[Rfam]
RNA: PyrR binding site
RNA sequence: UAUUCCUUUAAUCUAGUCCCGUGAGACUGGCAAGGAGAAUGAACGGAUCAAAAGUGCGCCAUUAGGUUUUGUGGUGCCCAUAUUUUGUGAAAUCUCCUUGCAUUCAAGGAGAUUUUUUAUGU
Dot-bracket structure: ..((((((....((((((......)))))).))))))............(((.(((.(((.............).)).))).)))...((((((((((((....))))))))))))......